[Rfam]
RNA sequence: AAAUGAUAAUAGCAAACUUAUUGAAAAAUAAGGACGCAAAGCCACGGAUCUAAGGGAUAUGAUUCUAUGAUAGCCAGGUUGCCAAA
Dot-bracket structure: ...........((...((((((....))))))...))..((((..(((((....((((...))))...)))..)).))))......
Rfam assigns this 86-nucleotide RNA sequence from Marinisporobacter balticus to the family "c-di-GMP-I riboswitch aptamer". On this family, see Weinberg et al., Nucleic Acids Res 2007: "Identification of 22 candidate structured RNAs in bacteria using the CMfinder comparative genomics pipeline". The family's consensus secondary structure is taken from published work. NCBI's taxonomy places the organism under Bacteria, Clostridia, Peptostreptococcales, Thermotaleaceae, Marinisporobacter. Its family is annotated with cyclic-di-GMP binding in the Gene Ontology.